[Rfam]
RNA sequence: ACUAUGGAGUAUGAUGAGCCUAGAGUAGUAUUUUAUAUGAAAUAGCAUACGAUGAAAUAGUAA
Numbered sequence: 001a002c003u004a005u006g007g008a009g010u011a012u013g014a015u016g017a018g019c020c021u022a023g024a025g026u027a028g029u030a031u032u033u034u035a036u037a038u039g040a041a042a043u044a045g046c047a048u049a050c051g052a053u054g055a056a057a058u059a060g061u062a063a
Stems, first nucleotide, its partner, number of pairs: 001061005009050005020045003028038003
Shown here is a 63-nucleotide RNA sequence, a member of the family "RAGATH-18 RNA".
Rfam describes the family as follows. Actinobacteria, Firmicutes, Fusobacteria, Thermotogae (1 example).